Shown here is a 99-nucleotide RNA from Corallincola holothuriorum, a member of the family "Alpha operon ribosome binding site".
The literature on the family includes a 2001 paper in J Biol Chem by Schlax et al., "Translational repression of the Escherichia coli alpha operon mRNA: importance of an mRNA conformational switch and a ternary entrapment complex".
Pairs were carried over by alignment from the consensus structure, which is taken from published work.
The match comes from Rfam's covariance-model search (74 bits).
Rfam links the family to the GO term ribosome binding.
From the family's description: The bacterial alpha operon ribosome binding site is surrounded by this complex pseudoknotted structure. Translation of the mRNA produces 4 ribosomal protein products, one of which (S4) acts as a translational repressor by binding to the nested pseudoknot region.
Rfam classes the family as a cis-regulatory element.
[Rfam]
RNA sequence: AUGGCCGAAUGGUUGAGUAUCCUUACGGGCUUUUCAACCAAUAGCCAACGAAUAGGAGAUGUGUUAGUGGCCCGUAUCGCUGGCAUUAACAUCCCUGAU
Number, nucleotide and partner (000 for none) at each position: 001a000002u047003g046004g045005c044006c000007g000008a000009a042010u041011g000012g000013u000014u000015g000016a000017g000018u000019a000020u000021c083022c082023u000024u000025a000026c074027g073028g072029g071030c000031u000032u000033u000034u098035c097036a096037a000038c000039c000040a000041a010042u009043a000044g005045c004046c003047a002048a000049c000050g000051a000052a000053u000054a000055g000056g000057a000058g000059a000060u000061g000062u000063g000064u000065u000066a000067g000068u000069g000070g000071c029072c028073c027074g026075u000076a000077u000078c000079g000080c000081u000082g022083g021084c000085a000086u000087u000088a000089a000090c000091a000092u000093c000094c000095c000096u036097g035098a034099u000